[Rfam]
RNA sequence: CAAAUCAGCGAGGGGUGCCGACUGCCAACCAUGGACUAGUUCCAUGUGUUGACCGGCUGAGAUGAAACCCUUAGAACCUGAUCCGGUUCACACCGGCGGAGGGACUGCUGGACUUAUUGGUA
Numbered sequence: 001c002a003a004a005u006c007a008g009c010g011a012g013g014g015g016u017g018c019c020g021a022c023u024g025c026c027a028a029c030c031a032u033g034g035a036c037u038a039g040u041u042c043c044a045u046g047u048g049u050u051g052a053c054c055g056g057c058u059g060a061g062a063u064g065a066a067a068c069c070c071u072u073a074g075a076a077c078c079u080g081a082u083c084c085g086g087u088u089c090a091c092a093c094c095g096g097c098g099g100a101g102g103g104a105c106u107g108c109u110g111g112a113c114u115u116a117u118u119g120g121u122a
Stems, first nucleotide, its partner, number of pairs: 006110005011071004016065001017057004077102003083096004
RNA: TPP riboswitch aptamer (THI element)